A member of the RNA family "AilA 5' UTR thermometer" from Yersinia enterocolitica, 89 nucleotides long. It is annotated as an RNA thermoregulator. AilA gene is associated with Yersinia virulence. RNAT functionality is impaired by point mutating the 5'UTR. Temperature affects the secondary structure and ribosome binding efficiency of the 5'UTR.
[Rfam]
RNA sequence: AGCCAUGUCAGUGAUAUGGUUAUUGUAUUAGUAUUGUUAUAACAAUCUGGAUUAUUUUUAUGAAAAAGACAUUACUAGCUAGUUCUCUA
Numbered sequence: 001a002g003c004c005a006u007g008u009c010a011g012u013g014a015u016a017u018g019g020u021u022a023u024u025g026u027a028u029u030a031g032u033a034u035u036g037u038u039a040u041a042a043c044a045a046u047c048u049g050g051a052u053u054a055u056u057u058u059u060a061u062g063a064a065a066a067a068g069a070c071a072u073u074a075c076u077a078g079c080u081a082g083u084u085c086u087c088u089a
Base pairs, nucleotide, nucleotide: 001021002020003019004018005017006016030076031075032074033073035071036070037063038062039061040060041059042058044056045055046054